[Rfam]
RNA sequence: AGAUGCAAUAGAGGCGCGGUGAAGAUCAGUAGCCCCAUGGAGGUCCGGCAGGAGCUGUGAGAUGGGAGGAAAGGAUUUACCGCCGAAACGAAGGAAACCUGCCGGUUUUAUUCGUUGGGAUGCAGUCUAAGAGGCUGCAUACUCUCACUGUAAAGUGGAGGCGCUAUUGGCUGG
Dot-bracket structure: .....((((((....((((((((..........(((((.......................))))).........))))))))...((((((.(((((......))))).))))))((.((((((((.....)))))))).)).(((((....))))).....)))))).....
Numbered sequence: 001a002g003a004u005g006c007a008a009u010a011g012a013g014g015c016g017c018g019g020u021g022a023a024g025a026u027c028a029g030u031a032g033c034c035c036c037a038u039g040g041a042g043g044u045c046c047g048g049c050a051g052g053a054g055c056u057g058u059g060a061g062a063u064g065g066g067a068g069g070a071a072a073g074g075a076u077u078u079a080c081c082g083c084c085g086a087a088a089c090g091a092a093g094g095a096a097a098c099c100u101g102c103c104g105g106u107u108u109u110a111u112u113c114g115u116u117g118g119g120a121u122g123c124a125g126u127c128u129a130a131g132a133g134g135c136u137g138c139a140u141a142c143u144c145u146c147a148c149u150g151u152a153a154a155g156u157g158g159a160g161g162c163g164c165u166a167u168u169g170g171c172u173g174g
Stems, first nucleotide, its partner, number of pairs: 006169006016083008034066005087116006094109005117143002120140008145158005
A member of the RNA family "Lysine riboswitch aptamer" from Clostridium sp. chh4-2, 174 nucleotides long. Rfam links the family to the GO term lysine biosynthetic process. The source organism's lineage runs through Bacteria, Bacillati, Bacillota, Eubacteriales and Clostridium.